[Rfam]
RNA sequence: GGCUUAGGCCGAGGCGGCUGCGUGUUAAUAGUUCGACCUAAUUGGCUGGGCGGAUGGUUAGUGAAUC
Numbered sequence: 001g002g003c004u005u006a007g008g009c010c011g012a013g014g015c016g017g018c019u020g021c022g023u024g025u026u027a028a029u030a031g032u033u034c035g036a037c038c039u040a041a042u043u044g045g046c047u048g049g050g051c052g053g054a055u056g057g058u059u060a061g062u063g064a065a066u067c
Stems, first nucleotide, its partner, number of pairs: 001010003025061005031055005037050003
RNA: L13-Bacteroidia ribosomal protein leader
Organism: Prevotella sp. CAG:617